[Rfam]
Shown here is a 31-nucleotide RNA from Myotis lucifugus, a member of the family "Iron response element I". On this family, see Huang et al., Insect Biochem Mol Biol 1999: "An atypical iron-responsive element (IRE) within crayfish ferritin mRNA and an iron regulatory protein 1 (IRP1)-like protein from crayfish hepatopancreas". The family's consensus secondary structure is taken from published work. A search with the family's covariance model found it, with a score of 36 bits. Lineage of the source: Eukaryota > Opisthokonta > Craniata > Mammalia > Myotis.
RNA sequence: CUGUCUCUUCAACAGUGUUUGGACAGAACAG
Number, nucleotide and partner (000 for none) at each position: 001c031002u030003g029004u028005c000006u027007c026008u023009u022010c021011a020012a019013c017014a000015g000016u000017g013018u000019u012020u011021g010022g009023a008024c000025a000026g007027a006028a004029c003030a002031g001